[Rfam]
RNA sequence: AGGCCUUUAACAUAUGAGUAAGGAAAAUAAUAAUUUGGGGUAGUGUCCAAAUCCUAACUGGGCAUGUAGGAAGAAUUUUUGAGAGGGUUCAGAUUGCCCCUAAAAUAAACCGAUUACUUCACAGGAUGUCUGGGUGUUGACAUCUGCCCA
Numbered sequence: 001a002g003g004c005c006u007u008u009a010a011c012a013u014a015u016g017a018g019u020a021a022g023g024a025a026a027a028u029a030a031u032a033a034u035u036u037g038g039g040g041u042a043g044u045g046u047c048c049a050a051a052u053c054c055u056a057a058c059u060g061g062g063c064a065u066g067u068a069g070g071a072a073g074a075a076u077u078u079u080u081g082a083g084a085g086g087g088u089u090c091a092g093a094u095u096g097c098c099c100c101u102a103a104a105a106u107a108a109a110c111c112g113a114u115u116a117c118u119u120c121a122c123a124g125g126a127u128g129u130c131u132g133g134g135u136g137u138u139g140a141c142a143u144c145u146g147c148c149c150a
Base pairs, nucleotide, nucleotide: 004023005022006021007020033052034051035050036049037048038047039046054070055069057067058066085149086148087147088146091145092144093143094142097139100134101133103131105129106128107127110124112122
RNA: U12 minor spliceosomal RNA